Shown here is a 119-nucleotide sequence from Streptomyces sp. NRRL WC-3618, a member of the family "Actinobacteria sRNA Ms_IGR-7". By type it is a small RNA. Rfam 15.1 lists 463 matches to the family in 194 species. A reference for the family is Li et al. (2013), "Identification of small RNAs in Mycobacterium smegmatis using heterologous Hfq", RNA. It scores 61 bits against the family's covariance model.
RNA sequence: CGGAAGUGCCUUGCCGAUCGUGCCUGAUGUGGUCCUGGAGAAACCCCAUCAUCGCAGUUCACAAGGCACUUCCUCGUUUCCGGAAGAACUAUCCACAGGCAUCAAGCCGGUGGAUCCGG
Dot-bracket structure: .((((((((((((..((.(.(((.((((...((.........))...))))..)))).)).)))))))))))).........................(.(((.(.....).))).)..